[Rfam]
RNA: tRNA
RNA sequence: GCCGAGGUAGCUCAGCUGGUUAGAGCGCAUGAUUCAUAAUCAUGAGGUCGGCGGUUCAAGCCCGCCUCUCGGUA
Numbered sequence: 001g002c003c004g005a006g007g008u009a010g011c012u013c014a015g016c017u018g019g020u021u022a023g024a025g026c027g028c029a030u031g032a033u034u035c036a037u038a039a040u041c042a043u044g045a046g047g048u049c050g051g052c053g054g055u056u057c058a059a060g061c062c063c064g065c066c067u068c069u070c071g072g073u074a
Stems, first nucleotide, its partner, number of pairs: 001073007010026004028044005050066005